The family of this 58-nucleotide RNA from Inquilinus limosus is "terC RNA". Taxonomically the source falls in Inquilinus (Bacteria, Pseudomonadati, Alphaproteobacteria, Rhodospirillales). It scores 58 bits against the family's covariance model. The base pairs follow the family's consensus structure, which is taken from published work. By type it is a cis-regulatory element.
RNA sequence: CGACCAGGCCGGGCCCCUCUGGCAGCUCCUCCGGGAUCUGCGAUGUCGGACUGGAACU
Number, nucleotide and partner (000 for none) at each position: 001c000002g000003a000004c000005c000006a052007g051008g000009c049010c048011g047012g046013g000014c000015c000016c000017c000018u000019c000020u000021g000022g041023c040024a039025g038026c000027u036028c035029c034030u000031c000032c000033g000034g029035g028036a027037u000038c025039u024040g023041c022042g000043a000044u000045g000046u012047c011048g010049g009050a000051c007052u006053g000054g000055a000056a000057c000058u000